[Rfam]
The family of this 355-nucleotide sequence from Clostridium uliginosum is "transfer-messenger RNA".
The literature on the family includes a 1996 paper in RNA by Williams and Bartel, "Phylogenetic analysis of tmRNA secondary structure".
The match comes from Rfam's covariance-model search (184 bits).
Gene Ontology term of the family: RNA catabolic process.
The family's RNA type in Rfam is non-coding RNA gene.
Pairs were carried over by alignment from the consensus structure, which is taken from published work.

RNA sequence: GGGGGCGUUUUGGCUUCGACGGGGGUAGGAUGGGUUUGUUAAGCGAGUCGAGGGAAGCAUGUGUCCUCGUUAAUCAAGUAUGCAAUAAAUGUAAACGCAGAAGACAAUUUUGCAUUAGCAGCUUAAUAUAAGCUACUCAUCAGCCCGAGUUGCCUACGGCUUGGAUAACUGGUGUCAUUAAGUAGGAAACGAAGUUUAGCAAAGCUUUGAGCUAAAGGGGUAUUUAUGAAGCUACCAAAAGAUGGAGCCUGUCUAUAGGCGCUAUCUCGAGGGAAUUUUAAAUUAUAGACUGCACUCGGAGAAAUUCAGAUUCAGCUAUUUUCGGACAGGGGUUCGAUACCCCUCGCCUCCACCA
Numbered sequence: 001g002g003g004g005g006c007g008u009u010u011u012g013g014c015u016u017c018g019a020c021g022g023g024g025g026u027a028g029g030a031u032g033g034g035u036u037u038g039u040u041a042a043g044c045g046a047g048u049c050g051a052g053g054g055a056a057g058c059a060u061g062u063g064u065c066c067u068c069g070u071u072a073a074u075c076a077a078g079u080a081u082g083c084a085a086u087a088a089a090u091g092u093a094a095a096c097g098c099a100g101a102a103g104a105c106a107a108u109u110u111u112g113c114a115u116u117a118g119c120a121g122c123u124u125a126a127u128a129u130a131a132g133c134u135a136c137u138c139a140u141c142a143g144c145c146c147g148a149g150u151u152g153c154c155u156a157c158g159g160c161u162u163g164g165a166u167a168a169c170u171g172g173u174g175u176c177a178u179u180a181a182g183u184a185g186g187a188a189a190c191g192a193a194g195u196u197u198a199g200c201a202a203a204g205c206u207u208u209g210a211g212c213u214a215a216a217g218g219g220g221u222a223u224u225u226a227u228g229a230a231g232c233u234a235c236c237a238a239a240a241g242a243u244g245g246a247g248c249c250u251g252u253c254u255a256u257a258g259g260c261g262c263u264a265u266c267u268c269g270a271g272g273g274a275a276u277u278u279u280a281a282a283u284u285a286u287a288g289a290c291u292g293c294a295c296u297c298g299g300a301g302a303a304a305u306u307c308a309g310a311u312u313c314a315g316c317u318a319u320u321u322u323c324g325g326a327c328a329g330g331g332g333u334u335c336g337a338u339a340c341c342c343c344u345c346g347c348c349u350c351c352a353c354c355a
Stems, first nucleotide, its partner, number of pairs: 001351007020324009031314008044298005049069005057083006117137002120134003138174006145164006153186005195216006203233006235272002240267005247260003251290004257283001328344005